[Rfam]
RNA sequence: UCAGUGUGGGGCCGGGAGGGCAUCCACCUUCUAACCCUAAAGUGCAGACCCCGAGCUCUGCCGGCGCUCGUUGUUUUACGGUUGCCUUUCAGCGGGCCGAGGAGCUCCGUGAAGCGAGGACUAAAAAACGGCAGCCGUGGACCCUCCUGGCCCCACCAUCCCGGCGUCCCCGCUCAGCGCCCGGGCUCUCACUCAUGUUCCCGCGGCUCCCACUUACACGGCCGCGGUCUACCGCCCCCACUGGUAGUCGCGAAGAGUCCGUCUCUGUCAGCCGGGGGGCCGCGGGCGGAGUGUGAGGUCCGGCGGGGAAAGCCGAGUAGAGGAAAGCGAGCCGUGCCGUCUCAUCUGCCGCUCCGGAGCUGUGGGGCGUGCGGUGGCGGCGGGCUCCGACAUCA
Dot-bracket structure: .....(((((((((((((.((.................................(((((......((((((((.......[[[[[[[[[))))))))...)))))....................]]].]]]]]]....)..))))))))))))))...(.((((....................(((.(((((.....((((((((((((...........(((((.((((...........))))))))).((((.....)))).......))))).)))))))..))))).)))..............)))).)...........((((..((((((.....((((..((((........))))...))))..)))))).))))........